A member of the RNA family "MIR397 microRNA precursor family" from Musa acuminata, 100 nucleotides long. The base pairs follow the family's consensus structure, which was predicted with WAR. Gene Ontology terms of the family: miRNA-mediated post-transcriptional gene silencing and RISC complex. A search with the family's covariance model found it, with a score of 71 bits. Taxonomically the source falls in Musa acuminata (Eukaryota, Streptophyta, Embryophyta, Musaceae). Rfam 15.1 lists 496 matches to the family in 218 species.
RNA sequence: AUCGAAGGCAUCAUUGAGUGCAGCGUUGAUGAGAAUCCAGUUUCCCUGAUGAAUAGGAACAUGGGGGCUUUCACCAACGCUGCACCCAAUAAUGCCUUCG
Numbered sequence: 001a002u003c004g005a006a007g008g009c010a011u012c013a014u015u016g017a018g019u020g021c022a023g024c025g026u027u028g029a030u031g032a033g034a035a036u037c038c039a040g041u042u043u044c045c046c047u048g049a050u051g052a053a054u055a056g057g058a059a060c061a062u063g064g065g066g067g068c069u070u071u072c073a074c075c076a077a078c079g080c081u082g083c084a085c086c087c088a089a090u091a092a093u094g095c096c097u098u099c100g
Stems, first nucleotide, its partner, number of pairs: 006097006013090004018085011030073003